[Rfam]
RNA sequence: CAAGAGAAACGCCAAACCUAUCGUGAGGUGGGGACGGAAAGUUACAGAUCUCACGCGUUGAGAUGGCUGAACUGCCUCC
Numbered sequence: 001c002a003a004g005a006g007a008a009a010c011g012c013c014a015a016a017c018c019u020a021u022c023g024u025g026a027g028g029u030g031g032g033g034a035c036g037g038a039a040a041g042u043u044a045c046a047g048a049u050c051u052c053a054c055g056c057g058u059u060g061a062g063a064u065g066g067c068u069g070a071a072c073u074g075c076c077u078c079c
Base pairs, nucleotide, nucleotide: 012037013036017032018031019030020029021028022027040073041072042071043070045069046068047067048064049063050062
The family of this 79-nucleotide RNA sequence from Vibrio renipiscarius is "c-di-GMP-I riboswitch aptamer". Rfam describes the family as follows. GEMM was predicted in a large-scale screen for bacterial structured RNA regulatory elements. Genes associated with GEMM are involved in a diverse array of functions, including chemotaxis regulation, signal transduction, secretion and chitin. It scores 54 bits against the family's covariance model. The organism belongs to Vibrio, within Bacteria.